[Rfam]
RNA: bZIP non canonical Hac1/Xbp1 intron
RNA sequence: GUUCCUCCGAUAUGACACAACAUCCUGCCGCGAUGUUGUGCGACCUGCAGUGUCAGUCGGACGAAC
Numbered sequence: 001g002u003u004c005c006u007c008c009g010a011u012a013u014g015a016c017a018c019a020a021c022a023u024c025c026u027g028c029c030g031c032g033a034u035g036u037u038g039u040g041c042g043a044c045c046u047g048c049a050g051u052g053u054c055a056g057u058c059g060g061a062c063g064a065a066c
Stems, first nucleotide, its partner, number of pairs: 001066004007060005019037006042054003